[Rfam]
Rfam assigns this 172-nucleotide RNA sequence to the family "c-di-AMP riboswitch aptamer (ydaO/yuaA leader)". The pairing is the family consensus, mapped onto this sequence. A search with the family's covariance model found it, with a score of 59 bits.
RNA sequence: ACGAGAAAAGGAUCGAGACCGCUGGCAGGAGCGGGGGAACCAUUCAUUUGGGCCCUGCACCCAUGGGGUCCUUGGGGUGAAGCGCGAUGCUGGCCAACAGGUCAGUACUGUGCCGGGUGACUAUCUCCGCCCGAACCCGACAGCUCACUUCGUAGGCGGCUGGAGAGGUAAA
Numbered sequence: 001a002c003g004a005g006a007a008a009a010g011g012a013u014c015g016a017g018a019c020c021g022c023u024g025g026c027a028g029g030a031g032c033g034g035g036g037g038a039a040c041c042a043u044u045c046a047u048u049u050g051g052g053c054c055c056u057g058c059a060c061c062c063a064u065g066g067g068g069u070c071c072u073u074g075g076g077g078u079g080a081a082g083c084g085c086g087a088u089g090c091u092g093g094c095c096a097a098c099a100g101g102u103c104a105g106u107a108c109u110g111u112g113c114c115g116g117g118u119g120a121c122u123a124u125c126u127c128c129g130c131c132c133g134a135a136c137c138c139g140a141c142a143g144c145u146c147a148c149u150u151c152g153u154a155g156g157c158g159g160c161u162g163g164a165g166a167g168g169u170a171a172a
Base pairs, nucleotide, nucleotide: 031153032152033151034150035149036148041074042073075138076137077136083112084111085110086109115132116131117130118129